[Rfam]
RNA sequence: UGAAAACGUUUUAAAAUAUAUCUGUUCUAUAAUUUCGUUGAAAUGAAAAAGAAUGGCCAAUUUUACGAUUGGAAGGAGAUUAUUCUUCUUUAUGUCAACGAAAAAAUUUUUUAAGGAGGAAGAACAAGA
Numbered sequence: 001u002g003a004a005a006a007c008g009u010u011u012u013a014a015a016a017u018a019u020a021u022c023u024g025u026u027c028u029a030u031a032a033u034u035u036c037g038u039u040g041a042a043a044u045g046a047a048a049a050a051g052a053a054u055g056g057c058c059a060a061u062u063u064u065a066c067g068a069u070u071g072g073a074a075g076g077a078g079a080u081u082a083u084u085c086u087u088c089u090u091u092a093u094g095u096c097a098a099c100g101a102a103a104a105a106a107u108u109u110u111u112u113a114a115g116g117a118g119g120a121a122g123a124a125c126a127a128g129a
Stems, first nucleotide, its partner, number of pairs: 006025003011020001026123003033103007041095001043093005049087006057072004
RNA: Streptococcus sRNA SSRC34
Organism: Streptococcus agalactiae